Rfam assigns this 105-nucleotide sequence from Bacillaceae bacterium SAS-127 to the family "SAM riboswitch aptamer (S box leader)".
The organism belongs to Bacillaceae, within Bacteria.
The base pairs follow the family's consensus structure, which is taken from published work.
About the family: The SAM riboswitch is found upstream of a number of genes which code for proteins involved in methionine or cysteine biosynthesis in Gram-positive bacteria. The SAM riboswitch acts at the level of transcription termination control.
[Rfam]
RNA sequence: UUCUUAUCGAGAGAGACUGAGGGACUGGCCCUAAGACGUCUCGGCAGCGGACUCUAAACGGAGUGCUGUGCCAAAUCCAGCAAGUAGAUGCUUGAAAGAUAAGAA
Numbered sequence: 001u002u003c004u005u006a007u008c009g010a011g012a013g014a015g016a017c018u019g020a021g022g023g024a025c026u027g028g029c030c031c032u033a034a035g036a037c038g039u040c041u042c043g044g045c046a047g048c049g050g051a052c053u054c055u056a057a058a059c060g061g062a063g064u065g066c067u068g069u070g071c072c073a074a075a076u077c078c079a080g081c082a083a084g085u086a087g088a089u090g091c092u093u094g095a096a097a098g099a100u101a102a103g104a105a
Stems, first nucleotide, its partner, number of pairs: 001105008013042005021031003025080004043072004048068002051064004076097001081094005